[Rfam]
RNA sequence: GUCUUGCAGUUGGUAACGGCUAACGUUGAGUACCCUCAGCCUCUGGCCCACUGUUGCGAUGCGAUUAUUCGCUUCAGCUGUCUGCAUGUCCCGUAAUCAGUGAUUCACGCAUUGGUCUCACUGAGGGCCCGACACUGCGCUACCCCGCAGGGCGACCGAUUACACGGGUUCGUGAUCGAUUUCCCCAUGGUGCGUCCUGGAUCGAUCCGGGCUGUG
Numbered sequence: 001g002u003c004u005u006g007c008a009g010u011u012g013g014u015a016a017c018g019g020c021u022a023a024c025g026u027u028g029a030g031u032a033c034c035c036u037c038a039g040c041c042u043c044u045g046g047c048c049c050a051c052u053g054u055u056g057c058g059a060u061g062c063g064a065u066u067a068u069u070c071g072c073u074u075c076a077g078c079u080g081u082c083u084g085c086a087u088g089u090c091c092c093g094u095a096a097u098c099a100g101u102g103a104u105u106c107a108c109g110c111a112u113u114g115g116u117c118u119c120a121c122u123g124a125g126g127g128c129c130c131g132a133c134a135c136u137g138c139g140c141u142a143c144c145c146c147g148c149a150g151g152g153c154g155a156c157c158g159a160u161u162a163c164a165c166g167g168g169u170u171c172g173u174g175a176u177c178g179a180u181u182u183c184c185c186c187a188u189g190g191u192g193c194g195u196c197c198u199g200g201a202u203c204g205a206u207c208c209g210g211g212c213u214g215u216g
Stems, first nucleotide, its partner, number of pairs: 018048005025040006051077003056072004060067001088128002091126002098123006150185003155180001157178004163174004197210005
This 216-nucleotide sequence from Parahalioglobus pacificus belongs to the Rfam family "ilvB-OMG RNA". It is annotated as a cis-regulatory element.